Rfam assigns this 89-nucleotide RNA from Ornithorhynchus anatinus to the family "mir-1420 microRNA precursor family". The sequence is in the family's curated seed alignment. Gene Ontology terms of the family: RISC complex and miRNA-mediated post-transcriptional gene silencing.
[Rfam]
RNA sequence: UGCUCAACUCUGCCUAUCCAAUCUGGGAGCACUCUCCAGUGACUUGAAGAAAGGAAAGUGCCACCUGACUGGAUGAGUUUGGUUGGGAU
Numbered sequence: 001u002g003c004u005c006a007a008c009u010c011u012g013c014c015u016a017u018c019c020a021a022u023c024u025g026g027g028a029g030c031a032c033u034c035u036c037c038a039g040u041g042a043c044u045u046g047a048a049g050a051a052a053g054g055a056a057a058g059u060g061c062c063a064c065c066u067g068a069c070u071g072g073a074u075g076a077g078u079u080u081g082g083u084u085g086g087g088a089u
Stems, first nucleotide, its partner, number of pairs: 003087007012078002015075006023067001025065002029061005035055003